[Rfam]
RNA sequence: GUCUCACUACGGCGUUGGUGACUGCCAACAAUGUUUGUCGAUCUAUGUUUCUUCCGAACGGGAGCUAAGUUGCAUCGGCGGCAGUAAACCGAGCUUGUACUCGGAAACUUUAAGCUAGAUGCCAAGGCACCCCCCUGGUUUUCCCAGGUCGGAAACUGAGGUAAGACGGCGCUGCGGUGAGGCC
Numbered sequence: 001g002u003c004u005c006a007c008u009a010c011g012g013c014g015u016u017g018g019u020g021a022c023u024g025c026c027a028a029c030a031a032u033g034u035u036u037g038u039c040g041a042u043c044u045a046u047g048u049u050u051c052u053u054c055c056g057a058a059c060g061g062g063a064g065c066u067a068a069g070u071u072g073c074a075u076c077g078g079c080g081g082c083a084g085u086a087a088a089c090c091g092a093g094c095u096u097g098u099a100c101u102c103g104g105a106a107a108c109u110u111u112a113a114g115c116u117a118g119a120u121g122c123c124a125a126g127g128c129a130c131c132c133c134c135c136u137g138g139u140u141u142u143c144c145c146a147g148g149u150c151g152g153a154a155a156c157u158g159a160g161g162u163a164a165g166a167c168g169g170c171g172c173u174g175c176g177g178u179g180a181g182g183c184c
Stems, first nucleotide, its partner, number of pairs: 002182007010174006018167002034155003039151006060132003064128003069123001073121003077116003084108002089104005